A member of the RNA family "Purine riboswitch aptamer" from Clostridium disporicum, 102 nucleotides long. The organism belongs to Clostridium, within Bacteria. The family is grouped with related families in Rfam's "Purine riboswitches".
RNA sequence: GAUAUUAUUUGUGUAUUAACUCGUAUAAAAUCCAUAAUAAGGUUGGAAAGUUUCUACCUGCUAGCCGUAAAAUAGCAGACUACGAGGGGAUAUAAGAAGGUU
Numbered sequence: 001g002a003u004a005u006u007a008u009u010u011g012u013g014u015a016u017u018a019a020c021u022c023g024u025a026u027a028a029a030a031u032c033c034a035u036a037a038u039a040a041g042g043u044u045g046g047a048a049a050g051u052u053u054c055u056a057c058c059u060g061c062u063a064g065c066c067g068u069a070a071a072a073u074a075g076c077a078g079a080c081u082a083c084g085a086g087g088g089g090a091u092a093u094a095a096g097a098a099g100g101u102u
Stems, first nucleotide, its partner, number of pairs: 020086006031047004058078006